[Rfam]
RNA sequence: ACAGCAACAUACGGCCACAGUAGAAGCGCUCAUGUCACGGCCCUGUCACAUUGUAACGAAUCUGUGAAUUCUGCU
Number, nucleotide and partner (000 for none) at each position: 001a000002c000003a000004g000005c000006a000007a000008c000009a000010u000011a000012c000013g042014g041015c040016c039017a000018c000019a075020g074021u073022a072023g071024a070025a069026g038027c000028g036029c000030u000031c000032a000033u000034g000035u000036c028037a000038c026039g016040g015041c014042c013043c000044u000045g000046u000047c064048a063049c000050a061051u060052u059053g000054u000055a000056a000057c000058g000059a052060a051061u050062c000063u048064g047065u000066g000067a000068a000069u025070u024071c023072u022073g021074c020075u019
The family of this 75-nucleotide RNA sequence from Alligator sinensis is "Mammalian CPEB3 ribozyme". The family's consensus secondary structure is taken from published work. Taxonomically the source falls in Alligator (Eukaryota, Chordata, Dipnotetrapodomorpha, Alligatorinae). From the family's description: The mammalian CPEB3 ribozyme is a self cleaving RNA located in the second intron of the CPEB3 gene which belongs to a family of genes regulating messenger RNA polyadenylation.